[Rfam]
RNA: MIR162_1 microRNA precursor family
RNA sequence: GUGAACGUCGCUGGAGGCAGCGGUUCAUCGAUCUCUUCCUGUGGAUUUUUUGUUUGUUUGUCAUUGUUGGAAAGAGAUUAAAAGCACGAACAGAUCGAUAAACCUCUGCAUCCAGCGGUUGCCUC
Numbered sequence: 001g002u003g004a005a006c007g008u009c010g011c012u013g014g015a016g017g018c019a020g021c022g023g024u025u026c027a028u029c030g031a032u033c034u035c036u037u038c039c040u041g042u043g044g045a046u047u048u049u050u051u052g053u054u055u056g057u058u059u060g061u062c063a064u065u066g067u068u069g070g071a072a073a074g075a076g077a078u079u080a081a082a083a084g085c086a087c088g089a090a091c092a093g094a095u096c097g098a099u100a101a102a103c104c105u106c107u108g109c110a111u112c113c114a115g116c117g118g119u120u121g122c123c124u125c
Base pairs, nucleotide, nucleotide: 013113014112015111018108019107020106022104023103024102025101027099028098029097030096031095032094033093036090037089038088